A member of the RNA family "Eukaryotic large subunit ribosomal RNA" from Wallemia ichthyophaga, 496 nucleotides of a longer RNA. On this family, see Cannone et al., BMC Bioinformatics 2002: "The comparative RNA web (CRW) site: an online database of comparative sequence and structure information for ribosomal, intron, and other RNAs". Lineage of the source: Eukaryota > Opisthokonta > Wallemiomycotina > Wallemiomycetes > Wallemia.
RNA sequence: CCUGCCGAAGUUUCCCUCAGGAUAGCAGACACUUGUAUCAGUUUUAUGUGGUAAAGCGAAUGAUUAGAGGCCUAGGGGAUGAAACAUCCUUUACCUAUUCUCAAACUUUAAAUAUGUAAGAGGCUCUUGUUACUUUAAUGAACUUGAGCAACGAAUGAAAGUGUCUAGUGGGCCAUUUUUGGUAAGCAGAACUGGCGAUGCGGGAUGAACCGAUCGUGAGGUUAAGGUGCCGGAAUAUACGCUCAUCAGACACCACAAAAGGUGUUAGUUCAUCUAGACAGCAGGACGGUGGCCAUGGAAGUCGGAAUCCGCUAAGGAGUGUGUAACAACUCACCUGCCGAAUGAACUAGCCCUGAAAAUGGAUGGCGCUUAAGCGUAUUACCCAUACCUCACCGUUUUUGUUUUUUUAAUUGUGAUGCAAAAACGAGUAGGCAGGCGUGAAGAUUGUAUAGAAGCUUAGAUAGUGAUAUUGAGUGGAACAAUCUUUAGUGCAGAU
Number, nucleotide and partner (000 for none) at each position: 001c436002c435003u434004g433005c432006c431007g000008a000009a000010g000011u024012u000013u022014c021015c020016c000017u000018c000019a000020g015021g014022a013023u000024a011025g000026c000027a166028g165029a164030c163031a162032c161033u160034u000035g000036u000037a000038u000039c000040a000041g000042u121043u120044u119045u118046a117047u116048g115049u114050g000051g000052u000053a000054a109055a107056g106057c000058g000059a000060a000061u103062g102063a101064u000065u000066a098067g000068a096069g095070g094071c000072c000073u093074a092075g091076g090077g089078g088079a000080u086081g000082a000083a000084a000085c000086a080087u000088c078089c077090u076091u075092u074093a073094c070095c069096u068097a000098u066099u000100c000101u063102c062103a061104a000105a000106c056107u055108u000109u054110a000111a000112a000113u000114a049115u048116g047117u046118a045119a044120g043121a042122g000123g149124c148125u147126c146127u000128u000129g143130u142131u141132a000133c000134u000135u000136u000137a000138a000139u000140g000141a131142a130143c129144u000145u000146g126147a125148g124149c123150a000151a000152c000153g000154a000155a000156u000157g000158a000159a000160a033161g032162u031163g030164u029165c028166u027167a000168g000169u000170g000171g000172g196173c195174c194175a193176u000177u191178u190179u189180u188181g187182g000183u000184a000185a000186g000187c181188a180189g179190a178191a177192c000193u175194g174195g173196c172197g000198a000199u000200g000201c212202g211203g210204g000205a000206u000207g000208a000209a000210c203211c202212g201213a000214u000215c000216g393217u392218g391219a390220g389221g000222u387223u000224a000225a000226g383227g382228u381229g000230c000231c000232g000233g000234a000235a380236u000237a379238u000239a000240c376241g375242c374243u000244c000245a000246u000247c000248a000249g000250a000251c000252a000253c000254c000255a000256c000257a000258a000259a000260a354261g353262g352263u000264g351265u350266u349267a348268g347269u346270u345271c344272a343273u342274c000275u000276a000277g000278a000279c000280a000281g338282c337283a336284g335285g334286a000287c311288g310289g309290u000291g000292g000293c305294c304295a000296u000297g000298g000299a000300a000301g000302u000303c000304g294305g293306a000307a000308u000309c289310c288311g287312c316313u000314a000315a000316g312317g332318a000319g000320u000321g330322u329323g000324u000325a000326a000327c000328a000329a322330c321331u000332c317333a000334c285335c284336u283337g282338c281339c000340g000341a000342a273343u272344g271345a270346a269347c268348u267349a266350g265351c264352c262353c261354u260355g000356a000357a000358a000359a000360u000361g000362g000363a000364u000365g000366g000367c000368g000369c000370u000371u000372a000373a000374g242375c241376g240377u000378a000379u237380u235381a228382c227383c226384c000385a000386u000387a222388c000389c220390u219391c218392a217393c216394c426395g425396u424397u423398u422399u421400u420401g419402u418403u000404u000405u000406u000407u000408u000409a000410a000411u000412u000413g000414u000415g000416a000417u000418g402419c401420a400421a399422a398423a397424a396425c395426g394427a000428g000429u000430a000431g006432g005433c004434a003435g002436g001437c491438g000439u488440g487441a486442a485443g484444a483445u482446u481447g480448u479449a000450u000451a000452g000453a000454a000455g475456c474457u000458u000459a000460g000461a470462u469463a468464g000465u000466g000467a000468u463469a462470u461471u000472g000473a000474g456475u455476g000477g000478a000479a448480c447481a446482a445483u444484c443485u442486u441487u440488a439489g000490u000491g437492c000493a000494g000495a000496u000